[Rfam]
RNA sequence: AGAACCUUUAAACUAAGUCCUGUGAGGCUUAAAAGGUUGCGACAGAAUACGUGUGGAAAUUUGUACACGUCUACCUCUUUGCAGCCUGCAAAGAGGUUUUUUAU
Number, nucleotide and partner (000 for none) at each position: 001a000002g000003a038004a037005c036006c035007u034008u033009u032010a000011a000012a000013c000014u031015a030016a029017g028018u027019c026020c000021u000022g000023u000024g000025a000026g019027g018028c017029u016030u015031a014032a009033a008034a007035g006036g005037u004038u003039g000040c000041g000042a000043c000044a000045g000046a000047a000048u000049a070050c069051g068052u067053g066054u065055g064056g000057a062058a000059a000060u000061u000062u057063g000064u055065a054066c053067a052068c051069g050070u049071c000072u000073a097074c096075c095076u094077c093078u092079u091080u090081g089082c088083a087084g000085c000086c000087u083088g082089c081090a080091a079092a078093g077094a076095g075096g074097u073098u000099u000100u000101u000102u000103a000104u000

Rfam assigns this 104-nucleotide sequence from Aquibacillus salsiterrae to the family "PyrR binding site". It scores 68 bits against the family's covariance model. This family represents the PyrR binding site and terminator structure. On this family, see Bonner et al., Nucleic Acids Res 2001: "Molecular recognition of pyr mRNA by the Bacillus subtilis attenuation regulatory protein PyrR". The family's RNA type in Rfam is cis-regulatory element. The base pairs follow the family's consensus structure, which is taken from published work. Taxonomically the source falls in Aquibacillus (Bacteria, Bacillota, Bacilli, Bacillaceae).